[Rfam]
This 115-nucleotide RNA from Neurospora crassa belongs to the Rfam family "U5 spliceosomal RNA". Rfam classes the family as a spliceosomal small nuclear RNA. For this family Rfam cites "Domain analysis of human U5 RNA. Cap trimethylation, protein binding, and spliceosome assembly" (Hinz et al., J Biol Chem, 1996). The sequence is in the family's curated seed alignment. The source organism's lineage runs through Eukaryota, Dikarya, sordariomyceta, Sordariomycetes and Neurospora crassa.
RNA sequence: CUGGAGUGGGCCUGCUCAUACGAACUCAUCUCCUGCCUUUUACCGGAUGUGACCGUGAGUUGGCCCAAAAUACUCCAAUACCCUAAUCUUUGGAACCCAUCUGGACAUCCAGAAU
Numbered sequence: 001c002u003g004g005a006g007u008g009g010g011c012c013u014g015c016u017c018a019u020a021c022g023a024a025c026u027c028a029u030c031u032c033c034u035g036c037c038u039u040u041u042a043c044c045g046g047a048u049g050u051g052a053c054c055g056u057g058a059g060u061u062g063g064c065c066c067a068a069a070a071u072a073c074u075c076c077a078a079u080a081c082c083c084u085a086a087u088c089u090u091u092g093g094a095a096c097c098c099a100u101c102u103g104g105a106c107a108u109c110c111a112g113a114a115u
Stems, first nucleotide, its partner, number of pairs: 003076004008066005014060005026052004031047003094115001100113005